[Rfam]
RNA sequence: GUUCCAGAUACGGUGACAUGGUACCAGAAACCAUCGCUGGAAAAGUGGUGGGUGGAGUUUGCUCGUUGAGCGGAGUACUCGUGAUAGCCCUGCCUGUGCCUGUCAUUGUCAGUAAC
Numbered sequence: 001g002u003u004c005c006a007g008a009u010a011c012g013g014u015g016a017c018a019u020g021g022u023a024c025c026a027g028a029a030a031c032c033a034u035c036g037c038u039g040g041a042a043a044a045g046u047g048g049u050g051g052g053u054g055g056a057g058u059u060u061g062c063u064c065g066u067u068g069a070g071c072g073g074a075g076u077a078c079u080c081g082u083g084a085u086a087g088c089c090c091u092g093c094c095u096g097u098g099c100c101u102g103u104c105a106u107u108g109u110c111a112g113u114a115a116c
Stems, first nucleotide, its partner, number of pairs: 001116002006113001010109004015104004020099001023097002039079002042076001052064001

The family of this 116-nucleotide sequence from Diachasma alloeum is "Potassium channel RNA editing signal".
The source organism's lineage runs through Eukaryota, Protostomia, Mandibulata, Ichneumonoidea and Diachasma.